A member of the RNA family "Selenocysteine transfer RNA" from Ornithinimicrobium pratense, 92 nucleotides long. Pairs were carried over by alignment from the consensus structure, which is taken from published work.
[Rfam]
RNA sequence: GGAGGCGUCUGGGUUCCUGGUGGGCCCCCCGGGCUUCAACCCCGCGGAACGGCGUUCGACGUCGUUGGCAGGUUCGAUUCCUGUCCGCCUCC
Dot-bracket structure: (((((((....((.(((....))).))(.((((.......)))).).(((((.........)))))..((((.......))))..)))))))
Numbered sequence: 001g002g003a004g005g006c007g008u009c010u011g012g013g014u015u016c017c018u019g020g021u022g023g024g025c026c027c028c029c030c031g032g033g034c035u036u037c038a039a040c041c042c043c044g045c046g047g048a049a050c051g052g053c054g055u056u057c058g059a060c061g062u063c064g065u066u067g068g069c070a071g072g073u074u075c076g077a078u079u080c081c082u083g084u085c086c087g088c089c090u091c092c
Stems, first nucleotide, its partner, number of pairs: 001092007012027002015024003028046001030044004048066005069083004